[Rfam]
RNA sequence: CCAACUGUUCCACCGGUUGUACCCUAGGGAGUGGUGCGGUGAGGUAACAAGCCGUAUAGAGCCUCCUGACAAUGUACCGAAACCCAAUUUAUCUGUGAAGAGCGAUUGGUACUGGCAGCAUCAAGCUGGUAGAGGGC
Numbered sequence: 001c002c003a004a005c006u007g008u009u010c011c012a013c014c015g016g017u018u019g020u021a022c023c024c025u026a027g028g029g030a031g032u033g034g035u036g037c038g039g040u041g042a043g044g045u046a047a048c049a050a051g052c053c054g055u056a057u058a059g060a061g062c063c064u065c066c067u068g069a070c071a072a073u074g075u076a077c078c079g080a081a082a083c084c085c086a087a088u089u090u091a092u093c094u095g096u097g098a099a100g101a102g103c104g105a106u107u108g109g110u111a112c113u114g115g116c117a118g119c120a121u122c123a124a125g126c127u128g129g130u131a132g133a134g135g136g137c
Stems, first nucleotide, its partner, number of pairs: 002019006028066004034057007043048001084109004093100002111130006
Shown here is a 137-nucleotide sequence from Legionella drancourtii, a member of the family "Group II catalytic intron D1-D4-7". The organism belongs to Legionella drancourtii, within Bacteria. The base pairs follow the family's consensus structure. Rfam's curators write: Group II introns are found in rRNA, tRNA and mRNA of organelles in fungi, plants and protists, and also in mRNA in bacteria. Rfam links the family to the GO term Group II intron splicing.